[Rfam]
RNA sequence: GGCGAUAAACGCUCUAUGGAAUAGGCGUAGCGGACCCGGGGGCGGUACCCGGCGCCUCCACCACAACGACAUCGACGGGGUCAUCCCGGUGUCGUUCUGCUGGGGGCGAAACAGGCUCGACGCGCGCAGUAAAGAUACAGUUUUCGCCCGGCAUGAUACCACCGUUAUCGGGUCUUUUUCACAAAUGCCAACGACAAUGAGGCAUUUGCUGUUGCUGCCUAA
Numbered sequence: 001g002g003c004g005a006u007a008a009a010c011g012c013u014c015u016a017u018g019g020a021a022u023a024g025g026c027g028u029a030g031c032g033g034a035c036c037c038g039g040g041g042g043c044g045g046u047a048c049c050c051g052g053c054g055c056c057u058c059c060a061c062c063a064c065a066a067c068g069a070c071a072u073c074g075a076c077g078g079g080g081u082c083a084u085c086c087c088g089g090u091g092u093c094g095u096u097c098u099g100c101u102g103g104g105g106g107c108g109a110a111a112c113a114g115g116c117u118c119g120a121c122g123c124g125c126g127c128a129g130u131a132a133a134g135a136u137a138c139a140g141u142u143u144u145c146g147c148c149c150g151g152c153a154u155g156a157u158a159c160c161a162c163c164g165u166u167a168u169c170g171g172g173u174c175u176u177u178u179u180c181a182c183a184a185a186u187g188c189c190a191a192c193g194a195c196a197a198u199g200a201g202g203c204a205u206u207u208g209c210u211g212u213u214g215c216u217g218c219c220u221a222a
Stems, first nucleotide, its partner, number of pairs: 001148005015137003026126003030123003036052005053108007149164003